[Rfam]
RNA: TPP riboswitch aptamer (THI element)
RNA sequence: CAGCAUCGCUAGGGGUCCUGCGCGGCAAGCGGUUUGCCGGCGCGGGUGAGACAUACCCUCCGAACCUGAUCCGGUUAACACCGGCGUAGGGAAGCGCAUUUCGGCCUGC
Number, nucleotide and partner (000 for none) at each position: 001c000002a000003g000004c000005a000006u000007c096008g095009c094010u093011a059012g058013g057014g056015g000016u053017c046018c045019u044020g043021c042022g041023c040024g000025g000026c000027a000028a000029g000030c000031g000032g000033u000034u000035u000036g000037c000038c000039g000040g023041c022042g021043c020044g019045g018046g017047u000048g000049a000050g000051a000052c000053a016054u000055a000056c014057c013058c012059u011060c000061c000062g000063a000064a000065c090066c089067u088068g087069a000070u000071c084072c083073g082074g081075u000076u000077a000078a000079c000080a000081c074082c073083g072084g071085c000086g000087u068088a067089g066090g065091g000092a000093a010094g009095c008096g007097c000098a000099u000100u000101u000102c000103g000104g000105c000106c000107u000108g000109c000